[Rfam]
RNA: Small nucleolar RNA snoR27
RNA sequence: UUUUUCUCUAUGAUGUUAUAAAUAGUACUGCGUUAUCUAUCUGAAUAAUGUAUGUAGAAAUUAACUGAAAUAGAGAAGGUCCGUACAAAAAAA
Numbered sequence: 001u002u003u004u005u006c007u008c009u010a011u012g013a014u015g016u017u018a019u020a021a022a023u024a025g026u027a028c029u030g031c032g033u034u035a036u037c038u039a040u041c042u043g044a045a046u047a048a049u050g051u052a053u054g055u056a057g058a059a060a061u062u063a064a065c066u067g068a069a070a071u072a073g074a075g076a077a078g079g080u081c082c083g084u085a086c087a088a089a090a091a092a093a
Stems, first nucleotide, its partner, number of pairs: 001093005007087001